[Rfam]
RNA sequence: GUCGAGCUAAGUAACAAUAGCUUGUAACCCAUGUGGGGACAUUAAGAUGGUGGGACACUGGUUCGGUUCCUCGGAUCGGUUCUGAUGUGGGCAUGUUUCUGAGCUGCCCAGUCCAAGCUGUGAGUAAUUAGUGUUGAGUUGAGCGAAGGCUUGGCUCAUGCAGGUUCUAGAGUCGGAGGGUAAUGCGUGAGGCUGGCUUCACAGAGCAGCGACUACUUCCCGCUUACAGCAGUGGACGGAUCACGGUUUAGCGUCGCUCAGAACCACUAUGGCCUGCUGGUCCGAUCUCAUAUGAACCACCAUUUU
Numbered sequence: 001g002u003c004g005a006g007c008u009a010a011g012u013a014a015c016a017a018u019a020g021c022u023u024g025u026a027a028c029c030c031a032u033g034u035g036g037g038g039a040c041a042u043u044a045a046g047a048u049g050g051u052g053g054g055a056c057a058c059u060g061g062u063u064c065g066g067u068u069c070c071u072c073g074g075a076u077c078g079g080u081u082c083u084g085a086u087g088u089g090g091g092c093a094u095g096u097u098u099c100u101g102a103g104c105u106g107c108c109c110a111g112u113c114c115a116a117g118c119u120g121u122g123a124g125u126a127a128u129u130a131g132u133g134u135u136g137a138g139u140u141g142a143g144c145g146a147a148g149g150c151u152u153g154g155c156u157c158a159u160g161c162a163g164g165u166u167c168u169a170g171a172g173u174c175g176g177a178g179g180g181u182a183a184u185g186c187g188u189g190a191g192g193c194u195g196g197c198u199u200c201a202c203a204g205a206g207c208a209g210c211g212a213c214u215a216c217u218u219c220c221c222g223c224u225u226a227c228a229g230c231a232g233u234g235g236a237c238g239g240a241u242c243a244c245g246g247u248u249u250a251g252c253g254u255c256g257c258u259c260a261g262a263a264c265c266a267c268u269a270u271g272g273c274c275u276g277c278u279g280g281u282c283c284g285a286u287c288u289c290a291u292a293u294g295a296a297c298c299a300c301c302a303u304u305u306u
Stems, first nucleotide, its partner, number of pairs: 001040003004023006028037003044306010056294002059290003063285004067280002071276001074274001076272002078265008087257001090255002099251008108239002111237005117230009126166004131161001135158010167172001175220005186211003193204003
Plant signal recognition particle RNA: a 306-nucleotide sequence.
The sequence is in the family's curated seed alignment.
The base pairs follow the family's consensus structure, which is taken from published work.
By type it is a non-coding RNA gene.
For this family Rfam cites "Prediction of signal recognition particle RNA genes" (Regalia et al., Nucleic Acids Res, 2002).